[Rfam]
RNA sequence: UAAAAGUGCAGGCAGGGUCAUCCUGUACUGGCCACAGCAUGGUUGCGAUAGAAAUAUUAAGCGUAAUUUAAGUACGCCGUCCUUGCUGGAUUCCUUGGCAAAGGGAAUUUACAUAGACU
Numbered sequence: 001u002a003a004a005a006g007u008g009c010a011g012g013c014a015g016g017g018u019c020a021u022c023c024u025g026u027a028c029u030g031g032c033c034a035c036a037g038c039a040u041g042g043u044u045g046c047g048a049u050a051g052a053a054a055u056a057u058u059a060a061g062c063g064u065a066a067u068u069u070a071a072g073u074a075c076g077c078c079g080u081c082c083u084u085g086c087u088g089g090a091u092u093c094c095u096u097g098g099c100a101a102a103g104g105g106a107a108u109u110u111a112c113a114u115a116g117a118c119u
Base pairs, nucleotide, nucleotide: 009030010029011028012026013025014024015023016022035088036087037086038085039084045080046079047078048057049056050055061077062076063075064074065073089109090108091107092106093105094104095103096102